[Rfam]
Plastid-psbM 3UTR RNA: a 78-nucleotide sequence from Cajanus cajan.
Rfam classes the family as a cis-regulatory element.
RNA sequence: AUCUGGAUAAUAUGGUAGAAAGAAAUCAAAUCUAUUUCUUUCUACCAUACUAUCCAUCUAUUAUUGUAGUGUAUAAAG
Dot-bracket structure: .....((((.((((((((((((((((.......)))))))))))))))).))))........................
Numbered sequence: 001a002u003c004u005g006g007a008u009a010a011u012a013u014g015g016u017a018g019a020a021a022g023a024a025a026u027c028a029a030a031u032c033u034a035u036u037u038c039u040u041u042c043u044a045c046c047a048u049a050c051u052a053u054c055c056a057u058c059u060a061u062u063a064u065u066g067u068a069g070u071g072u073a074u075a076a077a078g
Stems, first nucleotide, its partner, number of pairs: 006054004011049016
Lineage of the source: Eukaryota > Streptophyta > Mesangiospermae > Fabaceae > Cajanus. About the family: Plastid psbM is a non-coding RNA (ncRNA) recognised in plastids. It was found in the three prime untranslated region (3UTR) of psbM gene, its 3UTR location suggests a role in transcript maturation.